The record is a 60-nucleotide RNA from Ziziphus jujuba, which matches "Plastid-psbN 5UTR RNA" in Rfam. The family's consensus secondary structure was predicted with LocARNA.
[Rfam]
RNA sequence: UGUGAUACCCAUCAAAGGAGUAUUCCCCACCUAAGAGCUACAUUACCGUAUUCUGAAUUC
Numbered sequence: 001u002g003u004g005a006u007a008c009c010c011a012u013c014a015a016a017g018g019a020g021u022a023u024u025c026c027c028c029a030c031c032u033a034a035g036a037g038c039u040a041c042a043u044u045a046c047c048g049u050a051u052u053c054u055g056a057a058u059u060c
Base pairs, nucleotide, nucleotide: 017044018043020041021040022039023037024036025035
The match comes from Rfam's covariance-model search (57 bits).
Rfam's curators write: Plastid psbN is a non-coding RNA (ncRNA) recognised in plastids. It was reported as a conserved 11 stem-loop in the prime untranslated region (5UTR) of psbN genes.